[Rfam]
RNA: mir-16 microRNA precursor family
Organism: Laticauda laticaudata
RNA sequence: GUCACGCUUAAGCAGCACAAUAAUAUUGGCGUUAUCUUUACUACACCAAUAUUUACGUGCUGCUACAGCGGAAC
Numbered sequence: 001g002u003c004a005c006g007c008u009u010a011a012g013c014a015g016c017a018c019a020a021u022a023a024u025a026u027u028g029g030c031g032u033u034a035u036c037u038u039u040a041c042u043a044c045a046c047c048a049a050u051a052u053u054u055a056c057g058u059g060c061u062g063c064u065a066c067a068g069c070g071g072a073a074c
Stems, first nucleotide, its partner, number of pairs: 001074002005070003011064008020054001022053008